[Rfam]
RNA sequence: CAACAGCUGAAAGGAGGUGAUCCAGUGUCUCAUAGUUCCACCCGUAGUUCGGUGACCGUGACCUGGGCCUCCGCGUUUGAGGUCCGCGCCUAAGUCAUUGCUUCGGCAACAGGUUCGGAACCCGCACUGCGGACCGACUAUGGAAGGGCCGCCCCGACGAGGGGCGGCCCU
Numbered sequence: 001c002a003a004c005a006g007c008u009g010a011a012a013g014g015a016g017g018u019g020a021u022c023c024a025g026u027g028u029c030u031c032a033u034a035g036u037u038c039c040a041c042c043c044g045u046a047g048u049u050c051g052g053u054g055a056c057c058g059u060g061a062c063c064u065g066g067g068c069c070u071c072c073g074c075g076u077u078u079g080a081g082g083u084c085c086g087c088g089c090c091u092a093a094g095u096c097a098u099u100g101c102u103u104c105g106g107c108a109a110c111a112g113g114u115u116c117g118g119a120a121c122c123c124g125c126a127c128u129g130c131g132g133a134c135c136g137a138c139u140a141u142g143g144a145a146g147g148g149c150c151g152c153c154c155c156g157a158c159g160a161g162g163g164g165c166g167g168c169c170c171u
Stems, first nucleotide, its partner, number of pairs: 016023002031142007045065001047063001049061003067083005085117002087113001089112001094107003097103001122132004145171011
Annotation: The family of this 171-nucleotide RNA sequence from Phenylobacterium zucineum is "caulobacter sRNA CC2171".